[Rfam]
RNA sequence: GAGUUACUUUUACUUGCGAGGAUAAGCAUUUCAGGUGCGAAUUCGUAGCGAAAGCGAGUCUUAAUAGGGCGUUAUAGUAAGUAGUAGUAGACGCGAAACCUGGUGAUCUACCCUUGGGCAGGUUGAAGCGCUGGUAACACAGCGUGGAGGACCGAACUGGUUGUCGUUGAAAAGACUUCGGAUGACCUGAGGGUAGGGGUGAAAGGCCAAUCAAACUGGGAAAUAGCUCGUA
Numbered sequence: 001g002a003g004u005u006a007c008u009u010u011u012a013c014u015u016g017c018g019a020g021g022a023u024a025a026g027c028a029u030u031u032c033a034g035g036u037g038c039g040a041a042u043u044c045g046u047a048g049c050g051a052a053a054g055c056g057a058g059u060c061u062u063a064a065u066a067g068g069g070c071g072u073u074a075u076a077g078u079a080a081g082u083a084g085u086a087g088u089a090g091a092c093g094c095g096a097a098a099c100c101u102g103g104u105g106a107u108c109u110a111c112c113c114u115u116g117g118g119c120a121g122g123u124u125g126a127a128g129c130g131c132u133g134g135u136a137a138c139a140c141a142g143c144g145u146g147g148a149g150g151a152c153c154g155a156a157c158u159g160g161u162u163g164u165c166g167u168u169g170a171a172a173a174g175a176c177u178u179c180g181g182a183u184g185a186c187c188u189g190a191g192g193g194u195a196g197g198g199g200u201g202a203a204a205g206g207c208c209a210a211u212c213a214a215a216c217u218g219g220g221a222a223a224u225a226g227c228u229c230g231u232a
Base pairs, nucleotide, nucleotide: 005089006088007087008086010084011083012082013081014080015079016078017077020044021043022042023041026038027037028036048055049054058070059069060068061067092230093229095227099220100219101218102217103216104215108196109195110194111193112192113191114190115189116188117187118186119184121153122152123151124150128145129144130143131142132141133140157181158180159179163176164175165174198208199207200206
Notes: The family of this 232-nucleotide part of an RNA from Capnocytophaga canis is "Bacterial large subunit ribosomal RNA". A search with the family's covariance model found it, with a score of 2703 bits. The family's consensus secondary structure is taken from published work.